[Rfam]
Rfam assigns this 140-nucleotide RNA sequence from Neobacillus mesonae to the family "c-di-AMP riboswitch aptamer (ydaO/yuaA leader)".
Lineage of the source: Bacteria > Bacillati > Bacilli > Caryophanales > Neobacillus.
The pairing is the family consensus, mapped onto this sequence.
RNA sequence: UUUUCUAAAUCGCUCAAACCAUUAGGUGCGGGGGAACCAAUUAGAUGGAAAUCGUCUAAGGGGUGAAUCCUUUUUAGGUAGGGCUACUCAAGAGGCCCGAAUCCGACAGCUAACCUCGUAAGCGUUUUAUGAGAAGGAAG
Numbered sequence: 001u002u003u004u005c006u007a008a009a010u011c012g013c014u015c016a017a018a019c020c021a022u023u024a025g026g027u028g029c030g031g032g033g034g035a036a037c038c039a040a041u042u043a044g045a046u047g048g049a050a051a052u053c054g055u056c057u058a059a060g061g062g063g064u065g066a067a068u069c070c071u072u073u074u075u076a077g078g079u080a081g082g083g084c085u086a087c088u089c090a091a092g093a094g095g096c097c098c099g100a101a102u103c104c105g106a107c108a109g110c111u112a113a114c115c116u117c118g119u120a121a122g123c124g125u126u127u128u129a130u131g132a133g134a135a136g137g138a139a140g
Base pairs, nucleotide, nucleotide: 011124012123013122014121018027019026020025028119029118030117031116032115033114038060061104062103063102069078070077071076081098082097083096084095